Shown here is a 61-nucleotide RNA sequence from Aurantiacibacter zhengii, a member of the family "terC RNA". Pairs were carried over by alignment from the consensus structure, which is taken from published work. By type it is a cis-regulatory element.
RNA sequence: ACGCGGAUACCGGGCCCCUCUGGCGCGUCGCUGAAGCGGCGCGUGAUGUCGGACCGCAUCG
Numbered sequence: 001a002c003g004c005g006g007a008u009a010c011c012g013g014g015c016c017c018c019u020c021u022g023g024c025g026c027g028u029c030g031c032u033g034a035a036g037c038g039g040c041g042c043g044u045g046a047u048g049u050c051g052g053a054c055c056g057c058a059u060c061g
Base pairs, nucleotide, nucleotide: 005055006054010052011051012050013049023044024043025042026041027040029038030037031036